[Rfam]
RNA sequence: CAUGAAUAUUUGCCUUUACCGUAGACAGUAGGUGCGUCAGGUAACGCUUAAAUAUCCUACCGAGGUGCUCGCAUGUUUAAGUACUUACCCGUGCCUUCGACUGUCUGCGAAGGCUUUUUUGUUUUUCAUC
Numbered sequence: 001c002a003u004g005a006a007u008a009u010u011u012g013c014c015u016u017u018a019c020c021g022u023a024g025a026c027a028g029u030a031g032g033u034g035c036g037u038c039a040g041g042u043a044a045c046g047c048u049u050a051a052a053u054a055u056c057c058u059a060c061c062g063a064g065g066u067g068c069u070c071g072c073a074u075g076u077u078u079a080a081g082u083a084c085u086u087a088c089c090c091g092u093g094c095c096u097u098c099g100a101c102u103g104u105c106u107g108c109g110a111a112g113g114c115u116u117u118u119u120u121g122u123u124u125u126u127c128a129u130c
Stems, first nucleotide, its partner, number of pairs: 028060005034047003093114007
RNA: Ribosomal protein L10 leader